[Rfam]
RNA sequence: AGGGAGGUGAUGAUCCUUUCUCCACAUGAUCAAUUAUGAUUGUGAUUGCAUUUUCCAUUUUUUUAGUUCUCUGUUUGAAGAGAAAUCAAGCCAGAGAUUCUGAUUCUU
Numbered sequence: 001a002g003g004g005a006g007g008u009g010a011u012g013a014u015c016c017u018u019u020c021u022c023c024a025c026a027u028g029a030u031c032a033a034u035u036a037u038g039a040u041u042g043u044g045a046u047u048g049c050a051u052u053u054u055c056c057a058u059u060u061u062u063u064u065a066g067u068u069c070u071c072u073g074u075u076u077g078a079a080g081a082g083a084a085a086u087c088a089a090g091c092c093a094g095a096g097a098u099u100c101u102g103a104u105u106c107u108u
Stems, first nucleotide, its partner, number of pairs: 001108005
A member of the RNA family "Small nucleolar RNA Z103" from Cocos nucifera, 108 nucleotides long. The literature on the family includes a 2003 paper in Nucleic Acids Res by Chen et al., "The high diversity of snoRNAs in plants: identification and comparative study of 120 snoRNA genes from Oryza sativa". Gene Ontology terms of the family: nucleolus and RNA processing. The family's consensus secondary structure was predicted with PFOLD. NCBI's taxonomy places the organism under Eukaryota, Petrosaviidae, Arecoideae, Attaleinae, Cocos.